RNA sequence: UAGUUUUGGAGUGCGUGUCAGAAGUGCAUUUACAUAGGUAUUUUCCCGUUUAGCAGUAUUUGUAAAUGCACUAUCUGGUACGACAUUCCAGAAUCA
Numbered sequence: 001u002a003g004u005u006u007u008g009g010a011g012u013g014c015g016u017g018u019c020a021g022a023a024g025u026g027c028a029u030u031u032a033c034a035u036a037g038g039u040a041u042u043u044u045c046c047c048g049u050u051u052a053g054c055a056g057u058a059u060u061u062g063u064a065a066a067u068g069c070a071c072u073a074u075c076u077g078g079u080a081c082g083a084c085a086u087u088c089c090a091g092a093a094u095c096a
Stems, first nucleotide, its partner, number of pairs: 007090004014082009024071001026069009

The record is a 96-nucleotide RNA sequence from Culex quinquefasciatus, which matches "mir-277 microRNA precursor family" in Rfam. The family's consensus secondary structure was predicted with RNAalifold. The organism belongs to Culex pipiens complex, within Eukaryota. The sequence is in the family's curated seed alignment.